[Rfam]
RNA: Plant signal recognition particle RNA
RNA sequence: GUUGAGCAAGUAGCGAUUGCUUGUAACCUGAGAGGGGGCAAUAAAGUAGUGUGGAUGUCAAUUGUGGUGCAUGAGCCUGGGUCUAGUGCUACAAAAUGUGGACCACCUAUUCCAAGUUCUGUCGUGGGUUUCGUGUGCCUUGGCAAAAGCGUUUGCAUCCCAACACCUAAAGUGGCGGACAUUGCAUGAGGCUGACUUCAUAGAGCAGCGAAUACCACCCGCCACCAACGGUGGAAGGAUAAUGAGCCGCUAUGUUGUAGGCCAAUUAGGGCACAUGUGCCCUCUCUGGUAGACCACUAUCUUU
Numbered sequence: 001g002u003u004g005a006g007c008a009a010g011u012a013g014c015g016a017u018u019g020c021u022u023g024u025a026a027c028c029u030g031a032g033a034g035g036g037g038g039c040a041a042u043a044a045a046g047u048a049g050u051g052u053g054g055a056u057g058u059c060a061a062u063u064g065u066g067g068u069g070c071a072u073g074a075g076c077c078u079g080g081g082u083c084u085a086g087u088g089c090u091a092c093a094a095a096a097u098g099u100g101g102a103c104c105a106c107c108u109a110u111u112c113c114a115a116g117u118u119c120u121g122u123c124g125u126g127g128g129u130u131u132c133g134u135g136u137g138c139c140u141u142g143g144c145a146a147a148a149g150c151g152u153u154u155g156c157a158u159c160c161c162a163a164c165a166c167c168u169a170a171a172g173u174g175g176c177g178g179a180c181a182u183u184g185c186a187u188g189a190g191g192c193u194g195a196c197u198u199c200a201u202a203g204a205g206c207a208g209c210g211a212a213u214a215c216c217a218c219c220c221g222c223c224a225c226c227a228a229c230g231g232u233g234g235a236a237g238g239a240u241a242a243u244g245a246g247c248c249g250c251u252a253u254g255u256u257g258u259a260g261g262c263c264a265a266u267u268a269g270g271g272c273a274c275a276u277g278u279g280c281c282c283u284c285u286c287u288g289g290u291a292g293a294c295c296a297c298u299a300u301c302u303u304u
Stems, first nucleotide, its partner, number of pairs: 001039003004022006027036003043303002046300006053294001056291005061285001064282001066280001069278005075272004080263006088255002093251001098250004104244002107238002110236005116229003121225002124222002126166001128164003133160001135158004143150002167172001174219002177216002183212001185210001187208001192203003